[Rfam]
RNA sequence: UCCUAUUUGAUGUACGAGUACUGAGUUAGUGUGUUUUAAAGAGAAUGUUAUCCCUGAUAGCCUUUGUCCUUGACGCUUCAUCUUAGUGUUUCCCCGAUUAAAUAGUUGACUCUGGCCAUAUAUGCCAAAAGGCAAGUUUUUUUGAUGUUAUAUAGGAAAAGUCAAAUGUCCGACAAAAUGAAAGGUCAAGUUAAGUGGUUCAACGAGUCUAAAGGUUUCGGUUUCAUCACUCCUGCUGACGGUAGCAAAGACGUUUUCGUCCACUUCUCUGCCAUUCAAGGCGCUGGUUUCAAAACAUUGGGCGAAGGCCAAAAUGUUGAAUUCACCAUUGAAAAUGGUGCUAAAGGUCCAGCAGCUGCAAACGUAAACGCUAUCUAAGCUAAAUUACGUAACAAAUUUUCUAAAGCCCGUCAUUUAUAAUGACGGGCUUUUUC
Numbered sequence: 001u002c003c004u005a006u007u008u009g010a011u012g013u014a015c016g017a018g019u020a021c022u023g024a025g026u027u028a029g030u031g032u033g034u035u036u037u038a039a040a041g042a043g044a045a046u047g048u049u050a051u052c053c054c055u056g057a058u059a060g061c062c063u064u065u066g067u068c069c070u071u072g073a074c075g076c077u078u079c080a081u082c083u084u085a086g087u088g089u090u091u092c093c094c095c096g097a098u099u100a101a102a103u104a105g106u107u108g109a110c111u112c113u114g115g116c117c118a119u120a121u122a123u124g125c126c127a128a129a130a131g132g133c134a135a136g137u138u139u140u141u142u143u144g145a146u147g148u149u150a151u152a153u154a155g156g157a158a159a160a161g162u163c164a165a166a167u168g169u170c171c172g173a174c175a176a177a178a179u180g181a182a183a184g185g186u187c188a189a190g191u192u193a194a195g196u197g198g199u200u201c202a203a204c205g206a207g208u209c210u211a212a213a214g215g216u217u218u219c220g221g222u223u224u225c226a227u228c229a230c231u232c233c234u235g236c237u238g239a240c241g242g243u244a245g246c247a248a249a250g251a252c253g254u255u256u257u258c259g260u261c262c263a264c265u266u267c268u269c270u271g272c273c274a275u276u277c278a279a280g281g282c283g284c285u286g287g288u289u290u291c292a293a294a295a296c297a298u299u300g301g302g303c304g305a306a307g308g309c310c311a312a313a314a315u316g317u318u319g320a321a322u323u324c325a326c327c328a329u330u331g332a333a334a335a336u337g338g339u340g341c342u343a344a345a346g347g348u349c350c351a352g353c354a355g356c357u358g359c360a361a362a363c364g365u366a367a368a369c370g371c372u373a374u375c376u377a378a379g380c381u382a383a384a385u386u387a388c389g390u391a392a393c394a395a396a397u398u399u400u401c402u403a404a405a406g407c408c409c410g411u412c413a414u415u416u417a418u419a420a421u422g423a424c425g426g427g428c429u430u431u432u433u434c
Base pairs, nucleotide, nucleotide: 004020005019006018007017008016009015024234025233028231029230030229031228043225044224047223049221052220053215054214055213065207068205070203071202072201073200075199076198077197079168080167081166083164085162092156093155096112097111099109124133125132126131170185171184237331238330239329241327242326250258251257261319263317264316266314268313270311271310272308273307275302276301277300278299279298283296285294336351337350338349340348341347342346352374354372355371357370358369379398381396385392386391403431404430405429406428407427408426409425410424411423412422413421414420

Rfam assigns this 434-nucleotide RNA from Providencia heimbachae to the family "cspA thermoregulator". The match comes from Rfam's covariance-model search (227 bits). Rfam links the family to the GO terms response to temperature stimulus and regulation of translation.